[Rfam]
mir-9242 microRNA precursor family: a 64-nucleotide sequence from Myotis brandtii.
The family's consensus secondary structure was predicted with RNAalifold.
The match comes from Rfam's covariance-model search (68 bits).
Lineage of the source: Eukaryota > Deuterostomia > Theria > Yangochiroptera > Myotis.
RNA sequence: GACCUCCCUCUGAGAGGCGAUCAAUCUGGGGGCCCCAUGAUUGAUCGCCUCACAGAGGGAGGCC
Numbered sequence: 001g002a003c004c005u006c007c008c009u010c011u012g013a014g015a016g017g018c019g020a021u022c023a024a025u026c027u028g029g030g031g032g033c034c035c036c037a038u039g040a041u042u043g044a045u046c047g048c049c050u051c052a053c054a055g056a057g058g059g060a061g062g063c064c
Stems, first nucleotide, its partner, number of pairs: 001064001003062010014051013029036002